[Rfam]
This 124-nucleotide RNA sequence from Vanilla planifolia belongs to the Rfam family "MIR408 microRNA precursor family". The base pairs follow the family's consensus structure, which was predicted with WAR. A reference for the family is Mica et al. (2009), "High throughput approaches reveal splicing of primary microRNA transcripts and tissue specific expression of mature microRNAs in Vitis vinifera", BMC Genomics. It scores 70 bits against the family's covariance model. The organism belongs to Vanilla, within Eukaryota. Rfam links the family to the GO terms RISC complex and miRNA-mediated post-transcriptional gene silencing. Rfam 15.1 lists 299 matches to the family in 186 species.
RNA sequence: AGGGAGAGGCACGACGAGGCAGGGAUGAGGUAAGGCAUGAGAUGGGUUCAUCAACACGCCGAGCUUUUGUUGCUGCCCUUCCCAUGCACUGCCUCUUCCCUGGCUUCUCUCUACCCUUCUCCAU
Number, nucleotide and partner (000 for none) at each position: 001a000002g000003g000004g000005a000006g000007a000008g000009g000010c000011a000012c000013g000014a000015c000016g106017a105018g104019g000020c102021a101022g100023g099024g098025a097026u000027g000028a094029g093030g092031u091032a090033a000034g000035g087036c086037a085038u084039g083040a000041g082042a000043u000044g000045g078046g077047u000048u000049c000050a000051u000052c000053a000054a000055c000056a000057c000058g000059c000060c000061g000062a000063g000064c000065u000066u000067u000068u000069g000070u000071u000072g000073c000074u000075g000076c000077c046078c045079u000080u000081c000082c041083c039084a038085u037086g036087c035088a000089c000090u032091g031092c030093c029094u028095c000096u000097u025098c024099c023100c022101u021102g020103g000104c018105u017106u016107c000108u000109c000110u000111c000112u000113a000114c000115c000116c000117u000118u000119c000120u000121c000122c000123a000124u000